[Rfam]
RNA sequence: CUUGUAUAAUGACAAGACAGAUCAGCGUCUGAAUAAAACUUGUGUAGAAAGAGCCAUAGAUAAAAUAUGUUGCGAUGGCGAACACCAGCAGAGCACAGAUCAUGCUGAUGAAAACGCGCGGGGCGUACAUAUCUUUCUCCUCCGCUAAGCAUUGUCCCUCUGUAGAGAAAUGCA
Numbered sequence: 001c002u003u004g005u006a007u008a009a010u011g012a013c014a015a016g017a018c019a020g021a022u023c024a025g026c027g028u029c030u031g032a033a034u035a036a037a038a039c040u041u042g043u044g045u046a047g048a049a050a051g052a053g054c055c056a057u058a059g060a061u062a063a064a065a066u067a068u069g070u071u072g073c074g075a076u077g078g079c080g081a082a083c084a085c086c087a088g089c090a091g092a093g094c095a096c097a098g099a100u101c102a103u104g105c106u107g108a109u110g111a112a113a114a115c116g117c118g119c120g121g122g123g124c125g126u127a128c129a130u131a132u133c134u135u136u137c138u139c140c141u142c143c144g145c146u147a148a149g150c151a152u153u154g155u156c157c158c159u160c161u162g163u164a165g166a167g168a169a170a171u172g173c174a
Stems, first nucleotide, its partner, number of pairs: 004171002007168001018093001025055001028052002031041002068080003072076001118142001120140002123135001125133001143167001145165003149161001151159001
Dot-bracket structure: ...((.(..........(......(..((.((.......)).........))..)............(((.(...).)))............)........................(.((.(.(.......).)...)).)(.(((.(.(.......).).))).)).))...
Rhizobiales sRNA Atu_L1: a 174-nucleotide RNA sequence from Agrobacterium bohemicum. The literature on the family includes a 2012 paper in RNA Biol by Wilms et al., "Deep sequencing uncovers numerous small RNAs on all four replicons of the plant pathogen Agrobacterium tumefaciens". The match comes from Rfam's covariance-model search (78 bits). NCBI's taxonomy places the organism under Bacteria, Pseudomonadota, Hyphomicrobiales, Rhizobiaceae, Agrobacterium. Rfam classes the family as a small RNA.